[Rfam]
RNA sequence: UGGAAAUGAUGAAAUUGAGAUUAAUGGGUGUGUUUGUAUGUCUAUGUGUGUAUUAAGGGUGGCAGUAUUUUUUUAGGUAGUUAUCAGGUAAUGGUAAGGUACACAAGUUCAAUGGUUUAAAACUCUUAUGAUGAAUGAGUGUGAAUGGGGUUGUGUAUGUUGAGGUUGGCGAUGGUGGGGUCUGAUUUCAAGGCUUAGUGCUGAUACUGAAGUGCACCUGAAGGCAAUCACAGCUCAUUUUCAGGGCUUUGCAGUGUGAUUGUGCUGAUGAUUAGAGCCCCAGAGAGCCCACCGGGUCAACCGAGGCACCCAGACUUCUCUAACAGGCGACUCUGUCACUGUGAGCUGAUCCAA
Numbered sequence: 001u002g003g004a005a006a007u008g009a010u011g012a013a014a015u016u017g018a019g020a021u022u023a024a025u026g027g028g029u030g031u032g033u034u035u036g037u038a039u040g041u042c043u044a045u046g047u048g049u050g051u052a053u054u055a056a057g058g059g060u061g062g063c064a065g066u067a068u069u070u071u072u073u074u075a076g077g078u079a080g081u082u083a084u085c086a087g088g089u090a091a092u093g094g095u096a097a098g099g100u101a102c103a104c105a106a107g108u109u110c111a112a113u114g115g116u117u118u119a120a121a122a123c124u125c126u127u128a129u130g131a132u133g134a135a136u137g138a139g140u141g142u143g144a145a146u147g148g149g150g151u152u153g154u155g156u157a158u159g160u161u162g163a164g165g166u167u168g169g170c171g172a173u174g175g176u177g178g179g180g181u182c183u184g185a186u187u188u189c190a191a192g193g194c195u196u197a198g199u200g201c202u203g204a205u206a207c208u209g210a211a212g213u214g215c216a217c218c219u220g221a222a223g224g225c226a227a228u229c230a231c232a233g234c235u236c237a238u239u240u241u242c243a244g245g246g247c248u249u250u251g252c253a254g255u256g257u258g259a260u261u262g263u264g265c266u267g268a269u270g271a272u273u274a275g276a277g278c279c280c281c282a283g284a285g286a287g288c289c290c291a292c293c294g295g296g297u298c299a300a301c302c303g304a305g306g307c308a309c310c311c312a313g314a315c316u317u318c319u320c321u322a323a324c325a326g327g328c329g330a331c332u333c334u335g336u337c338a339c340u341g342u343g344a345g346c347u348g349a350u351c352c353a354a
Stems, first nucleotide, its partner, number of pairs: 001353004226261007236251002241246001

The family of this 354-nucleotide RNA from Callorhinchus milii is "Small Cajal body-specific RNA 7". The family has 18 seed sequences and 570 matches in Rfam 15.1. It scores 106 bits against the family's covariance model. For this family Rfam cites "Cajal body-specific small nuclear RNAs: a novel class of 2'-O-methylation and pseudouridylation guide RNAs" (Darzacq et al., EMBO J, 2002). The family's RNA type in Rfam is small Cajal body RNA. The organism belongs to Callorhinchus, within Eukaryota.